[Rfam]
RNA sequence: AUACAGCUAGAUCCAUACCCCUAAACUCCCUAGAUGAAGGACAGUGCCUAUAUGCACUGUCCUCCUUUU
Numbered sequence: 001a002u003a004c005a006g007c008u009a010g011a012u013c014c015a016u017a018c019c020c021c022u023a024a025a026c027u028c029c030c031u032a033g034a035u036g037a038a039g040g041a042c043a044g045u046g047c048c049u050a051u052a053u054g055c056a057c058u059g060u061c062c063u064c065c066u067u068u069u
Base pairs, nucleotide, nucleotide: 004036005035007033008032009031039062040061041060042059043058044057045056046055047054
Listeria sRNA sbrA: a 69-nucleotide RNA from Mesobacillus foraminis. It is annotated as a small RNA. It scores 72 bits against the family's covariance model. The base pairs follow the family's consensus structure, which was predicted with WAR.